[Rfam]
Shown here is a 101-nucleotide RNA from Salix koriyanagi, a member of the family "Small nucleolar RNA R30/Z108". It scores 86 bits against the family's covariance model. The family's RNA type in Rfam is C/D-box small nucleolar RNA. Rfam describes the family as follows. snoR30 is a C/D box small nucleolar RNA which acts as a methylation guide for 18S ribosomal RNA in plants. The organism belongs to Salix, within Eukaryota.
RNA sequence: UGAGAUUACAAUGAGGAUAUAUAGCUCCCUCUUCUGAUUCAAAGUUGAGGAAAUUAGCUGGCAGAAUCGAACCAAUUAAAUAUCAAGCCAUCACUGAGUAA
Dot-bracket structure: .....((((........................................................................................))))